[Rfam]
RNA sequence: AUUGGGCUUAGUUAGGAGGCAUUAAAUAAUCUGAUCUUUUCAAUACUUUUCUGUAUUGGUUUGAUCUUAAUUGACUUGAGGUCUUUUGAGGAGGAGCUCUGCUUUCUUGCUGCUUCUCCCAAGCAGCCUCAGACAUUA
Number, nucleotide and partner (000 for none) at each position: 001a000002u000003u000004g000005g020006g000007c018008u017009u016010a000011g000012u000013u000014a000015g000016g009017a008018g007019g000020c005021a000022u000023u000024a000025a000026a000027u000028a000029a000030u000031c000032u000033g066034a065035u064036c063037u000038u000039u000040u000041c000042a000043a000044u058045a057046c000047u055048u000049u000050u000051c000052u000053g000054u000055a047056u000057u045058g044059g000060u000061u000062u000063g036064a035065u034066c033067u000068u000069a000070a000071u000072u000073g000074a000075c000076u132077u131078g130079a129080g128081g127082u126083c000084u000085u123086u122087u121088g120089a000090g119091g118092a117093g116094g115095a114096g113097c112098u000099c000100u000101g000102c000103u000104u000105u000106c000107u000108u000109g000110c000111u000112g097113c096114u095115u094116c093117u092118c091119c090120c088121a087122a086123g085124c000125a000126g082127c081128c080129u079130c078131a077132g076133a000134c000135a000136u000137u000138a000
The record is a 138-nucleotide sequence from Brassica napus, which matches "Small nucleolar RNA U19" in Rfam. Taxonomically the source falls in Brassica (Eukaryota, Viridiplantae, Gunneridae, malvids). It scores 78 bits against the family's covariance model.